[Rfam]
Nucleotides: 067
Stems, first nucleotide, its partner, number of pairs: 004028007044067009
Number, partner (000 for none) and nucleotide at each position: 001000a002000a003000a004028g005027g006026g007025u008024c009023c010022g011000c012000c013000u014000g015000g016000g017000u018000a019000g020000u021000a022010c023009g024008g025007a026006c027005c028004c029000u030000g031000c032000a033000c034000u035000c036000a037000g038000a039000g040000g041000g042000u043000u044067g045066g046065c047064g048063g049062c050061g051060g052059g053000a054000g055000g056000g057000g058000u059052c060051u061050c062049g063048c064047c065046g066045c067044c
Record summary
A member of the RNA family "Acido-1 RNA" from Candidatus Solibacter usitatus, 67 nucleotides long. Pairs were carried over by alignment from the consensus structure, which is taken from published work. The organism belongs to Candidatus Solibacter usitatus, within Bacteria. By type it is a small RNA.